[Rfam]
RNA: c-di-AMP riboswitch aptamer (ydaO/yuaA leader)
RNA sequence: GAGUCUGCAACGUUGGCACCGCCAGUGACCGACGUGCGGAGCCGGGGAACCACCCCUUGUCGCCCGUCCUCGGGCGGGAGGGUCUUUCCCGGGGUGAAUCGGCGCGAGGGCCGCCCCCACGGGGUGGUGACACGCCGUAGGGCAGCUUCCGGCCCGAACCCGUCAGCUCACCCGGUAAGCGGCCGAAGGAAGAAGGA
Numbered sequence: 001g002a003g004u005c006u007g008c009a010a011c012g013u014u015g016g017c018a019c020c021g022c023c024a025g026u027g028a029c030c031g032a033c034g035u036g037c038g039g040a041g042c043c044g045g046g047g048a049a050c051c052a053c054c055c056c057u058u059g060u061c062g063c064c065c066g067u068c069c070u071c072g073g074g075c076g077g078g079a080g081g082g083u084c085u086u087u088c089c090c091g092g093g094g095u096g097a098a099u100c101g102g103c104g105c106g107a108g109g110g111c112c113g114c115c116c117c118c119a120c121g122g123g124g125u126g127g128u129g130a131c132a133c134g135c136c137g138u139a140g141g142g143c144a145g146c147u148u149c150c151g152g153c154c155c156g157a158a159c160c161c162g163u164c165a166g167c168u169c170a171c172c173c174g175g176u177a178a179g180c181g182g183c184c185g186a187a188g189g190a191a192g193a194a195g196g197a
Stems, first nucleotide, its partner, number of pairs: 004040006041176006051091001092161003100137004140155004